[Rfam]
RNA sequence: ACUGAGUGAAGCUAGGGUUCCAGCCAUCGAUGACAAUGGCGUUCGGUCCGAGAGCUUCACCCCUGGCAAGGGGCCACGGAGGGAUAAAAACCCGGGAGAU
Numbered sequence: 001a002c003u004g005a006g007u008g009a010a011g012c013u014a015g016g017g018u019u020c021c022a023g024c025c026a027u028c029g030a031u032g033a034c035a036a037u038g039g040c041g042u043u044c045g046g047u048c049c050g051a052g053a054g055c056u057u058c059a060c061c062c063c064u065g066g067c068a069a070g071g072g073g074c075c076a077c078g079g080a081g082g083g084a085u086a087a088a089a090a091c092c093c094g095g096g097a098g099a100u
Stems, first nucleotide, its partner, number of pairs: 007059006015049002020046002022043001023040005060073005075095001077098001081093003